Rfam assigns this 156-nucleotide RNA from Filifactor alocis to the family "Enterococcus sRNA 30".
[Rfam]
RNA sequence: GUCAAUUUGAUAGUGGGAACAAAUAAUUAGAUGUCCCUUUUUAGGAGGGGUUAGUUUUUUGUGCCCAGUUUAAGAAUACUUUUAUCAUGUGAUUAUGAAGUAUACAGAAAAUAUCUGUAUGCUUAUGAUUGUGCAUUUAUUUCCCAGUGAUAAGAG
Numbered sequence: 001g002u003c004a005a006u007u008u009g010a011u012a013g014u015g016g017g018a019a020c021a022a023a024u025a026a027u028u029a030g031a032u033g034u035c036c037c038u039u040u041u042u043a044g045g046a047g048g049g050g051u052u053a054g055u056u057u058u059u060u061g062u063g064c065c066c067a068g069u070u071u072a073a074g075a076a077u078a079c080u081u082u083u084a085u086c087a088u089g090u091g092a093u094u095a096u097g098a099a100g101u102a103u104a105c106a107g108a109a110a111a112u113a114u115c116u117g118u119a120u121g122c123u124u125a126u127g128a129u130u131g132u133g134c135a136u137u138u139a140u141u142u143c144c145c146a147g148u149g150a151u152a153a154g155a156g
Stems, first nucleotide, its partner, number of pairs: 005077004012070003015066003019062005025056006034049003038045002081154008091143002098124006105117004

The organism belongs to Filifactor alocis, within Bacteria.
It is annotated as a small RNA.
From the family's description: Produced as 2 transcripts on Northern blot. Expressed in mid, late exponential and early stationary phases of growth. Expression fluctuated under daptomycin exposure.